[Rfam]
RNA: Group II catalytic intron D1-D4-3
RNA sequence: UAGUUGGCCAACGACUGGGUCUGAAGGAAGCGAUAGGAAGUUAACGGUACACAACGUAAGUGAACCUGACUCGGCGGUUUAGGUGGGUAAGCGUGCAAAAUAGCGCAAAGCCCAAUACUCAAUCAAACCUAAGGCGUGUUUGAGGGUGGCAUUGUUAACAGGGCGUCAGUGC
Numbered sequence: 001u002a003g004u005u006g007g008c009c010a011a012c013g014a015c016u017g018g019g020u021c022u023g024a025a026g027g028a029a030g031c032g033a034u035a036g037g038a039a040g041u042u043a044a045c046g047g048u049a050c051a052c053a054a055c056g057u058a059a060g061u062g063a064a065c066c067u068g069a070c071u072c073g074g075c076g077g078u079u080u081a082g083g084u085g086g087g088u089a090a091g092c093g094u095g096c097a098a099a100a101u102a103g104c105g106c107a108a109a110g111c112c113c114a115a116u117a118c119u120c121a122a123u124c125a126a127a128c129c130u131a132a133g134g135c136g137u138g139u140u141u142g143a144g145g146g147u148g149g150c151a152u153u154g155u156u157a158a159c160a161g162g163g164c165g166u167c168a169g170u171g172c
Stems, first nucleotide, its partner, number of pairs: 001017006030172003034168001037164001041158005047153001050148003065145003069141001074137003078133007085113004091106004
Dot-bracket structure: ((((((.....))))))............(((.(..(...(((((.(..(((............(((.(....(((.(((((((((((..((((........))))...)))).............))))))).)))...).))))))....)))))).....)...).)))